[Rfam]
RNA sequence: UAUGGAAUACGCCUUCGAGCCUGUCCGCCUAAAGGUAGCGUCCCAUGGCAGACUGGCCUGGGCCCGACGCCCACGGGGUAUAGUUGGAAACGGCUAUGCCUUCCCAGUUUGAAAAGGAGGUAGACAAAUGAUUAG
Numbered sequence: 001u002a003u004g005g006a007a008u009a010c011g012c013c014u015u016c017g018a019g020c021c022u023g024u025c026c027g028c029c030u031a032a033a034g035g036u037a038g039c040g041u042c043c044c045a046u047g048g049c050a051g052a053c054u055g056g057c058c059u060g061g062g063c064c065c066g067a068c069g070c071c072c073a074c075g076g077g078g079u080a081u082a083g084u085u086g087g088a089a090a091c092g093g094c095u096a097u098g099c100c101u102u103c104c105c106a107g108u109u110u111g112a113a114a115a116g117g118a119g120g121u122a123g124a125c126a127a128a129u130g131a132u133u134a135g
Stems, first nucleotide, its partner, number of pairs: 011121006019057003023053003027049003034043002059073005076101011102112002
Shown here is a 135-nucleotide sequence from Thermosinus carboxydivorans, a member of the family "Molybdenum/Tungsten riboswitch aptamer (Moco RNA motif)". It is one of the family's seed sequences. The organism belongs to Thermosinus carboxydivorans, within Bacteria. On this family, see Weinberg et al., Nucleic Acids Res 2007: "Identification of 22 candidate structured RNAs in bacteria using the CMfinder comparative genomics pipeline".